The family of this 79-nucleotide RNA from Steinernema carpocapsae is "SmY spliceosomal RNA". The match comes from Rfam's covariance-model search (64 bits). The base pairs follow the family's consensus structure, which is taken from published work.

[Rfam]
RNA sequence: CGACCACCUUAUACUCUACCAGGGCCUUAUACAAGACCCGGUGAACAAUUUUUGGAGGCUUGUUCAUUAGAACGAGCUA
Numbered sequence: 001c002g003a004c005c006a007c008c009u010u011a012u013a014c015u016c017u018a019c020c021a022g023g024g025c026c027u028u029a030u031a032c033a034a035g036a037c038c039c040g041g042u043g044a045a046c047a048a049u050u051u052u053u054g055g056a057g058g059c060u061u062g063u064u065c066a067u068u069a070g071a072a073c074g075a076g077c078u079a
Base pairs, nucleotide, nucleotide: 022039023038024037026035027034028033057078058077059076060075061074062073063072064071065070

The family's RNA type in Rfam is spliceosomal small nuclear RNA. Rfam 15.1 lists 408 matches to the family in 67 species. A reference for the family is Maroney et al. (1996), "Direct analysis of nematode cis- and trans-spliceosomes: a functional role for U5 snRNA in spliced leader addition trans-splicing and the identification of novel Sm snRNPs", RNA.